[Rfam]
Nucleotides: 068
Stems, first nucleotide, its partner, number of pairs: 001068010
Number, partner (000 for none) and nucleotide at each position: 001068a002067a003066a004065a005064u006063a007062a008061a009060g010059c011000a012000a013000a014000a015000g016000c017000u018000a019000u020000u021000u022000u023000a024000a025000u026000a027000g028000c029000c030000u031000g032000c033000g034000u035000u036000g037000a038000g039000u040000u041000u042000u043000u044000a045000a046000a047000a048000u049000u050000u051000a052000a053000c054000a055000c056000u057000u058000a059010g060009c061008u062007u063006u064005a065004u066003u067002u068001u